[Rfam]
RNA sequence: GGGAGCACAGGAUCUUGGGCUGUGUCUGCUCAGCACCCUGGGAUCUGGGGCCUGUGCUGCUGGAAUCAGGCUCCCGGGCCGCUGCUCCU
Numbered sequence: 001g002g003g004a005g006c007a008c009a010g011g012a013u014c015u016u017g018g019g020c021u022g023u024g025u026c027u028g029c030u031c032a033g034c035a036c037c038c039u040g041g042g043a044u045c046u047g048g049g050g051c052c053u054g055u056g057c058u059g060c061u062g063g064a065a066u067c068a069g070g071c072u073c074c075c076g077g078g079c080c081g082c083u084g085c086u087c088c089u
Stems, first nucleotide, its partner, number of pairs: 001089003006084002008081001010080002014077002017074003021070001023068002025064002030062001031059006040052001042051001044049001
The family of this 89-nucleotide sequence from Canis lupus is "mir-8799 microRNA precursor family". A search with the family's covariance model found it, with a score of 47 bits. Taxonomically the source falls in Canis lupus (Eukaryota, Craniata, Teleostomi, Tetrapoda). Rfam links the family to the GO terms RISC complex and miRNA-mediated post-transcriptional gene silencing.